The family of this 344-nucleotide sequence from Naumannella cuiyingiana is "Bacterial RNase P class A". It is annotated as a ribozyme. Its family is annotated with tRNA processing, ribonuclease P activity and dimeric ribonuclease P complex in the Gene Ontology. The organism belongs to Naumannella, within Bacteria. The family's consensus secondary structure is taken from published work.
RNA sequence: CGAGCCAGCCAGGUGGUCGCGGUGCGCAUCGCGUACCGAGGAAAGUCCGGACUCCACAGAGCAGGGUGGUGGGUAACACCCACCCGGGGCGACCCGCGGGAAAGUGCCACAGAGAACAGACCGCCCCCGUGAGGGGGUAAGGGUGAAACGGCGGUGUAAGAGACCACCGGCAUCCCGGGCGACCGGGAUGGCCAGGCAAACCCCACCCGGAGCAAGACCAGACAGGCUGCGUUCGAGGGUUGCUCGCCCGAGCAGCCGGGUAGGUCGCACCAGGCGGUCGGCAACGGCCGUCGCAGAUGGAUGAUCACCCGCGACAGAAUCCGGCUUAUCGGCUGGCUCGUCCC
Dot-bracket structure: ((((((((((((((((((.((((((((...))))))))....[[[.[[[[[((((...[[[[.((((((((((.....)))))(((((....)))).)((...(((((............((((((((....))))))..)).......((.(((.......))).)).(((((((((....)))))))).)..)))..)))))))))))))...((((.....((((((......((((.]]]]))))..)))))).....))))......((((((((....))))))))..........)))))))..........]]]]]]]].).))))))))))....